[Rfam]
RNA: Small nucleolar RNA Z43
Organism: Setaria italica
RNA sequence: GGACAGUGAAGAUUGUAUCUAUUGGUCUCGUUCGUCGUAACAGGCUGCAUCUGUUUGCCUUGCCGACCAUCCUCAUAUAUUCCGAGUCC
Numbered sequence: 001g002g003a004c005a006g007u008g009a010a011g012a013u014u015g016u017a018u019c020u021a022u023u024g025g026u027c028u029c030g031u032u033c034g035u036c037g038u039a040a041c042a043g044g045c046u047g048c049a050u051c052u053g054u055u056u057g058c059c060u061u062g063c064c065g066a067c068c069a070u071c072c073u074c075a076u077a078u079a080u081u082c083c084g085a086g087u088c089c
Stems, first nucleotide, its partner, number of pairs: 001089004047060001